This 103-nucleotide RNA from Citrus sinensis belongs to the Rfam family "Small nucleolar RNA Z107/R87".
The family's consensus secondary structure was predicted with RNAfold.
The match comes from Rfam's covariance-model search (92 bits).
The organism belongs to Citrus, within Eukaryota.

[Rfam]
RNA sequence: GAUCGCGGUGAUGACUCAGUAAAAUUCAAGCUCAACAGACCGGAAUGCAGGCUUCUCUUUUCGAGAACUCUGCGUGUCGACAACCCCGCUGAACUGAGCGAUC
Numbered sequence: 001g002a003u004c005g006c007g008g009u010g011a012u013g014a015c016u017c018a019g020u021a022a023a024a025u026u027c028a029a030g031c032u033c034a035a036c037a038g039a040c041c042g043g044a045a046u047g048c049a050g051g052c053u054u055c056u057c058u059u060u061u062c063g064a065g066a067a068c069u070c071u072g073c074g075u076g077u078c079g080a081c082a083a084c085c086c087c088g089c090u091g092a093a094c095u096g097a098g099c100g101a102u103c
Stems, first nucleotide, its partner, number of pairs: 001103006
Dot-bracket structure: ((((((...........................................................................................))))))